[Rfam]
RNA sequence: UGAUACCAGGGUCAAAAGGUCAGAAGUUCGACGCAAGCUUGCUUGCAGGAGAAUUUUUGACCUUGAGACCCGCCAAAAACAUGAGUAAGCAGCCAUUUUUCAAAGAAAAAUGAGCGAAUUACGAAUGUUUUUGAGGGUGCUAUGUGCCAGUGGCACAUGUUUAGCACCGACCGAAGCAGAGCGGAGAUGCGGGAGCACGUAGUGCGGAGCAAUCCGGUAUCA
Numbered sequence: 001u002g003a004u005a006c007c008a009g010g011g012u013c014a015a016a017a018g019g020u021c022a023g024a025a026g027u028u029c030g031a032c033g034c035a036a037g038c039u040u041g042c043u044u045g046c047a048g049g050a051g052a053a054u055u056u057u058u059g060a061c062c063u064u065g066a067g068a069c070c071c072g073c074c075a076a077a078a079a080c081a082u083g084a085g086u087a088a089g090c091a092g093c094c095a096u097u098u099u100u101c102a103a104a105g106a107a108a109a110a111u112g113a114g115c116g117a118a119u120u121a122c123g124a125a126u127g128u129u130u131u132u133g134a135g136g137g138u139g140c141u142a143u144g145u146g147c148c149a150g151u152g153g154c155a156c157a158u159g160u161u162u163a164g165c166a167c168c169g170a171c172c173g174a175a176g177c178a179g180a181g182c183g184g185a186g187a188u189g190c191g192g193g194a195g196c197a198c199g200u201a202g203u204g205c206g207g208a209g210c211a212a213u214c215c216g217g218u219a220u221c222a
Base pairs, nucleotide, nucleotide: 001222002221003220004219005218006217007216010070011069012068013067017063018062019061020060021059022058023057024056025055026054027053028052029051032048033046034045035044036043037042075132076131077130078129079128080127081126082125085122086121087120088119092115093114094112095111096110097109098108099107100106101105135215136214137213138212141209146205